Rfam assigns this 375-nucleotide RNA from Halobacillus yeomjeoni to the family "Bacterial RNase P class B".
It scores 323 bits against the family's covariance model.
About the family: Ribonuclease P (RNase P) is a ubiquitous endoribonuclease, found in archaea, bacteria and eukarya as well as chloroplasts and mitochondria. Its best characterised activity is the generation of mature 5'-ends of tRNAs by cleaving the 5'-leader elements of precursor-tRNAs. Cellular RNase Ps are ribonucleoproteins. RNA from bacterial RNase Ps retains its catalytic activity in the absence of the protein subunit, i.e. it is a ribozyme. Isolated eukaryotic and archaeal RNase P RNA has not been shown to retain its catalytic function, but is still essential for the catalytic activity of the holoenzyme. Although the archaeal and eukaryotic holoenzyme s have a much greater protein content than the bacterial ones, the RNA cores from all the three lineages are homologous -- helices corresponding to P1, P2, P3, P4, and P10/11 are common to all cellular RNase P RNAs. Yet, there is considerable sequence variation, particularly among the eukaryotic RNAs.
Rfam classes the family as a ribozyme.
[Rfam]
RNA sequence: AUACUCAGGUAAUCGCUGCAUGACUCGAUUAUGCAGAGGAAAGUCCAUGCUCGCACAAACUGAGAUGUUUGUAGUGUUCACGCCUGACGAAAUCAUAAGUCAGGGUAGUUUUUAACUAACGGCAGGGAAAAUUCCUACGUCUUCGGAUAUGGAAUGAAUACCUUGAAAGUGCCACAGUGACGGAGCCAAAAUAGAAAUAUUUUGGGUGGAACGAGGUAAACCCCGUGAGCGAGCAACCCAAAUUUAGGUAGGGGCACUCUUGGAAGGGAACUCAACCUGAAAAGAGGUCGUUGAUACGGCAGAUAGAUGAUUACCACCGGAGUACGAGGUUGACCGCCGUUCGUAGUACGAAGGAACAGAACAUGGCUUACAGAG
Numbered sequence: 001a002u003a004c005u006c007a008g009g010u011a012a013u014c015g016c017u018g019c020a021u022g023a024c025u026c027g028a029u030u031a032u033g034c035a036g037a038g039g040a041a042a043g044u045c046c047a048u049g050c051u052c053g054c055a056c057a058a059a060c061u062g063a064g065a066u067g068u069u070u071g072u073a074g075u076g077u078u079c080a081c082g083c084c085u086g087a088c089g090a091a092a093u094c095a096u097a098a099g100u101c102a103g104g105g106u107a108g109u110u111u112u113u114a115a116c117u118a119a120c121g122g123c124a125g126g127g128a129a130a131a132u133u134c135c136u137a138c139g140u141c142u143u144c145g146g147a148u149a150u151g152g153a154a155u156g157a158a159u160a161c162c163u164u165g166a167a168a169g170u171g172c173c174a175c176a177g178u179g180a181c182g183g184a185g186c187c188a189a190a191a192u193a194g195a196a197a198u199a200u201u202u203u204g205g206g207u208g209g210a211a212c213g214a215g216g217u218a219a220a221c222c223c224c225g226u227g228a229g230c231g232a233g234c235a236a237c238c239c240a241a242a243u244u245u246a247g248g249u250a251g252g253g254g255c256a257c258u259c260u261u262g263g264a265a266g267g268g269a270a271c272u273c274a275a276c277c278u279g280a281a282a283a284g285a286g287g288u289c290g291u292u293g294a295u296a297c298g299g300c301a302g303a304u305a306g307a308u309g310a311u312u313a314c315c316a317c318c319g320g321a322g323u324a325c326g327a328g329g330u331u332g333a334c335c336g337c338c339g340u341u342c343g344u345a346g347u348a349c350g351a352a353g354g355a356a357c358a359g360a361a362c363a364u365g366g367c368u369u370a371c372a373g374a375g
Base pairs, nucleotide, nucleotide: 004375005374006373008315009314010313011312012311013310014309016036017035018034019033020032021031041369042368043367045366046365047364048363049362050233051232052231053230054229055072056071057070058069059068060067078228079227080226081225082224083104084103085102086101087100088099105120106118107117108116109115110114121223122222124163125162126161132154133153134152135151139148140147141146169221170220171217172216173215186205187204188203189202190201191200192199193198237253238252239251257286258285259284260283261282287300288299289298290297291296317354318353322349323348324347325346